[Rfam]
The record is a 127-nucleotide sequence from Gryllotalpicola protaetiae, which matches "FMN riboswitch aptamer (RFN element)" in Rfam. The family's consensus secondary structure is taken from published work. The source organism's lineage runs through Bacteria, Bacillati, Actinomycetota, Microbacteriaceae and Gryllotalpicola. Rfam's curators write: The RFN element is a highly conserved domain that is found frequently in the 5'-untranslated regions of prokaryotic mRNAs that encode for flavin mononucleotide (FMN) biosynthesis and transport proteins.
RNA sequence: AUGUGCUCCGGGGUCGGUGAGAGUCCGAACCGGCGGUGAAAGUCCGCGAGCCCUUGCCGAACGUGGCGGGGUUGAGCCGGUGGAAUUCCGGCACCGACGGUUAAAGUCCGGAUGGGAGGAAGCACAG
Numbered sequence: 001a002u003g004u005g006c007u008c009c010g011g012g013g014u015c016g017g018u019g020a021g022a023g024u025c026c027g028a029a030c031c032g033g034c035g036g037u038g039a040a041a042g043u044c045c046g047c048g049a050g051c052c053c054u055u056g057c058c059g060a061a062c063g064u065g066g067c068g069g070g071g072u073u074g075a076g077c078c079g080g081u082g083g084a085a086u087u088c089c090g091g092c093a094c095c096g097a098c099g100g101u102u103a104a105a106g107u108c109c110g111g112a113u114g115g116g117a118g119g120a121a122g123c124a125c126a127g
Base pairs, nucleotide, nucleotide: 003125004124005123006122007121008118015027016026017025029107030106031096032095033047034046035045036044042094043093050072051071052070076092077091078090079089080088098110099109100108